Annotation:
This 92-nucleotide RNA from Fundicoccus ignavus belongs to the Rfam family "SAM-III riboswitch aptamer (SMK box)". The match comes from Rfam's covariance-model search (62 bits). The literature on the family includes a 2007 paper in Proc Natl Acad Sci U S A by Fuchs et al., "S-adenosylmethionine directly inhibits binding of 30S ribosomal subunits to the SMK box translational riboswitch RNA". Rfam links the family to the GO terms methionine adenosyltransferase activity and regulation of translational initiation. Lineage of the source: Bacteria > Bacillati > Lactobacillales > Aerococcaceae > Fundicoccus.
RNA sequence: UAACGUUACAACCAAAAGUUCCCGAUAGGGUUCACUUGUCCAUCAAGUGAAAUUGCCUUGUAACCAAAAUUUAAUAUGGGGGAAAAGGAAUG
Numbered sequence: 001u002a003a004c005g006u007u008a009c010a011a012c013c014a015a016a017a018g019u020u021c022c023c024g025a026u027a028g029g030g031u032u033c034a035c036u037u038g039u040c041c042a043u044c045a046a047g048u049g050a051a052a053u054u055g056c057c058u059u060g061u062a063a064c065c066a067a068a069a070u071u072u073a074a075u076a077u078g079g080g081g082g083a084a085a086a087g088g089a090a091u092g
Base pairs, nucleotide, nucleotide: 019084020083021082022081023080027058028057029056031051032050033049034048035047036046037045064079065078